[Rfam]
Shown here is a 261-nucleotide sequence from Lepisosteus oculatus, a member of the family "RNase MRP".
The source organism's lineage runs through Eukaryota, Bilateria, Gnathostomata, Teleostomi and Lepisosteus.
It scores 146 bits against the family's covariance model.
About the family: RNase MRP is an enzymatically active ribonucleoprotein with two distinct roles in eukaryotes.
Rfam classes the family as a ribozyme.

RNA sequence: AGGCAUUCUGGAGACCUGUCUACUAGGCUACAAGCUGGGAACCCAGUUUCUCCUCCGUGCGCCUAGGGGAAAGUCCCCGGACCCGUGGCAGAGAGUGCCUUUGCGUGAAGCAGCCUGCGGUCUGCACGUCACCACGCCUCAGCUAAGACGUCCUCGGACCGAGCUGGGUGACGUCAGGCUGCACUCGUCAUAGCGGUGUAGUAACGCAGGUGGUGUGUACUUCCAGUGCAUCAACAGAACGGGGCUCAUUCCCAGAAUGCC
Numbered sequence: 001a002g003g004c005a006u007u008c009u010g011g012a013g014a015c016c017u018g019u020c021u022a023c024u025a026g027g028c029u030a031c032a033a034g035c036u037g038g039g040a041a042c043c044c045a046g047u048u049u050c051u052c053c054u055c056c057g058u059g060c061g062c063c064u065a066g067g068g069g070a071a072a073g074u075c076c077c078c079g080g081a082c083c084c085g086u087g088g089c090a091g092a093g094a095g096u097g098c099c100u101u102u103g104c105g106u107g108a109a110g111c112a113g114c115c116u117g118c119g120g121u122c123u124g125c126a127c128g129u130c131a132c133c134a135c136g137c138c139u140c141a142g143c144u145a146a147g148a149c150g151u152c153c154u155c156g157g158a159c160c161g162a163g164c165u166g167g168g169u170g171a172c173g174u175c176a177g178g179c180u181g182c183a184c185u186c187g188u189c190a191u192a193g194c195g196g197u198g199u200a201g202u203a204a205c206g207c208a209g210g211u212g213g214u215g216u217g218u219a220c221u222u223c224c225a226g227u228g229c230a231u232c233a234a235c236a237g238a239a240c241g242g243g244g245c246u247c248a249u250u251c252c253c254a255g256a257a258u259g260c261c
Stems, first nucleotide, its partner, number of pairs: 002261010014211006023066006037052005072246002075244004087099004101113004116181002122177003126174007140166004150159003213231006